RNA: SAM-I/IV (S-adenosyl methionine) riboswitch aptamer
RNA sequence: CGUUUGCAUUAAGAGACGGUUUCAGUACCGGUCCAACCGAGCCACCAUAAUGGCCACGGUGGGAAAAUUGAUGCGAAUUAGUAAACGAAUGUCUAACUAAUUAAAAAUAUUCUA
Dot-bracket structure: .....(((((......((((......)))).(((..(((.((....[.....))..))).)))......))))).(((((((.............)))))))........]...